[Rfam]
RNA: Small nucleolar RNA U109
RNA sequence: UUGCAUAUGGGAAACUCAUGUUCUGCUCCUCAUUCUUUUGGGAGUAAGACUAUCUAUGGCACAAAGAUAAAGGAAUUUUCAGGACUGCUAGUCAGGUAGUGAAGAUUAAGUGGUAGUCUAUUUCUCCUACAGAA
Numbered sequence: 001u002u003g004c005a006u007a008u009g010g011g012a013a014a015c016u017c018a019u020g021u022u023c024u025g026c027u028c029c030u031c032a033u034u035c036u037u038u039u040g041g042g043a044g045u046a047a048g049a050c051u052a053u054c055u056a057u058g059g060c061a062c063a064a065a066g067a068u069a070a071a072g073g074a075a076u077u078u079u080c081a082g083g084a085c086u087g088c089u090a091g092u093c094a095g096g097u098a099g100u101g102a103a104g105a106u107u108a109a110g111u112g113g114u115a116g117u118c119u120a121u122u123u124c125u126c127c128u129a130c131a132g133a134a
Base pairs, nucleotide, nucleotide: 004058005057006056007055022048024046025045026044027043028042029041072127073126074125084114085113088110089108090107091106092105093104